[Rfam]
RNA sequence: UACUAAGGGUGUACGGUGAAUGCCUUGGCGCCAGAAGUCGAUGAAGGACGCGGUAAGCUGCGAUAAGCCCCGGUGAGAUGCAAACAAUCUUUGACCCGGGGAUGUCCGAAUGGGGAAACCCUCCUUGGUUAAUCCCGAGGAAUCCUCCACUGAAUCCAUAGGUGGUGCGAAGACAACGUGGGGAAGUGAACCAUCUCAGUACCCACAGGAAGAGAAAACAACAGUGAUUCCGCUAGUAGCGGCGAGCGAACGCGGAACAGCCCAAACCGGAGUGCAUGCAUUUCGGGGUUGUAGGGCCCGUCAUACGGAGUUACAAACCAACAGGCUAGUCAAACGAUCUGGAACGAUCGGCCAUAGAUGGUGACAGCCCAGUAGACGACAGUCUGUUGGCUCCGACGGGUACCCUGAGUAUCGCGGGACACGUGAAAUCCCGCGAGAAUCUACGAGGACCAUCUCGUAAGGCUAAAUACUCUCUGGCGACCGAUAGUGAACCAGUACCGUGAGGGAAAGGUGAAAAGAACCCCUGUGAGGGGAGUGAAAUAGUACCUGAAACCGUAUACCUACAAG
Numbered sequence: 001u002a003c004u005a006a007g008g009g010u011g012u013a014c015g016g017u018g019a020a021u022g023c024c025u026u027g028g029c030g031c032c033a034g035a036a037g038u039c040g041a042u043g044a045a046g047g048a049c050g051c052g053g054u055a056a057g058c059u060g061c062g063a064u065a066a067g068c069c070c071c072g073g074u075g076a077g078a079u080g081c082a083a084a085c086a087a088u089c090u091u092u093g094a095c096c097c098g099g100g101g102a103u104g105u106c107c108g109a110a111u112g113g114g115g116a117a118a119c120c121c122u123c124c125u126u127g128g129u130u131a132a133u134c135c136c137g138a139g140g141a142a143u144c145c146u147c148c149a150c151u152g153a154a155u156c157c158a159u160a161g162g163u164g165g166u167g168c169g170a171a172g173a174c175a176a177c178g179u180g181g182g183g184a185a186g187u188g189a190a191c192c193a194u195c196u197c198a199g200u201a202c203c204c205a206c207a208g209g210a211a212g213a214g215a216a217a218a219c220a221a222c223a224g225u226g227a228u229u230c231c232g233c234u235a236g237u238a239g240c241g242g243c244g245a246g247c248g249a250a251c252g253c254g255g256a257a258c259a260g261c262c263c264a265a266a267c268c269g270g271a272g273u274g275c276a277u278g279c280a281u282u283u284c285g286g287g288g289u290u291g292u293a294g295g296g297c298c299c300g301u302c303a304u305a306c307g308g309a310g311u312u313a314c315a316a317a318c319c320a321a322c323a324g325g326c327u328a329g330u331c332a333a334a335c336g337a338u339c340u341g342g343a344a345c346g347a348u349c350g351g352c353c354a355u356a357g358a359u360g361g362u363g364a365c366a367g368c369c370c371a372g373u374a375g376a377c378g379a380c381a382g383u384c385u386g387u388u389g390g391c392u393c394c395g396a397c398g399g400g401u402a403c404c405c406u407g408a409g410u411a412u413c414g415c416g417g418g419a420c421a422c423g424u425g426a427a428a429u430c431c432c433g434c435g436a437g438a439a440u441c442u443a444c445g446a447g448g449a450c451c452a453u454c455u456c457g458u459a460a461g462g463c464u465a466a467a468u469a470c471u472c473u474c475u476g477g478c479g480a481c482c483g484a485u486a487g488u489g490a491a492c493c494a495g496u497a498c499c500g501u502g503a504g505g506g507a508a509a510g511g512u513g514a515a516a517a518g519a520a521c522c523c524c525u526g527u528g529a530g531g532g533g534a535g536u537g538a539a540a541u542a543g544u545a546c547c548u549g550a551a552a553c554c555g556u557a558u559a560c561c562u563a564c565a566a567g
Stems, first nucleotide, its partner, number of pairs: 007562010022547001023511002027482002029479007036471002038173002046107003049062003068101006077089003112121003122141007143170002145167001147165005177208001178206005188195002218225002228467001229256005239247002259464004267286007293406003297400005316392001318390010329377003335350005353357001359371003412436008443458005498505002521533004